[Rfam]
RNA sequence: CUCUGGCCCGACGGCGACUGGGCCAGGGCGGAAAGAG
Numbered sequence: 001c002u003c004u005g006g007c008c009c010g011a012c013g014g015c016g017a018c019u020g021g022g023c024c025a026g027g028g029c030g031g032a033a034a035g036a037g
Base pairs, nucleotide, nucleotide: 001028002027003026004025005024006023007022008021009020010019
Background: Shown here is a 37-nucleotide RNA, a member of the family "L31-Firmicutes ribosomal protein leader". The sequence is in the family's curated seed alignment. A reference for the family is Eckert and Weinberg (2020), "Discovery of 20 novel ribosomal leader candidates in bacteria and archaea", BMC Microbiol.